Nucleotides: 080
Base pairs, nucleotide, nucleotide: 014048015047018043019042020041021039025036026035027034028033055079056078057077058076061075063073064072
Number, partner (000 for none) and nucleotide at each position: 001000u002000a003000a004000c005000a006000g007000c008000g009000a010000u011000g012000a013000g014048g015047u016000a017000a018043g019042a020041g021039g022000u023000u024000g025036c026035c027034g028033g029000a030000c031000u032000u033028c034027c035026g036025g037000g038000u039021u040000a041020u042019u043018c044000u045000u046000c047015a048014c049000c050000g051000a052000g053000c054000a055079u056078g057077u058076c059000c060000u061075g062000a063073u064072c065000u066000u067000g068000a069000a070000u071000c072064g073063g074000g075061c076058g077057a078056c079055g080000g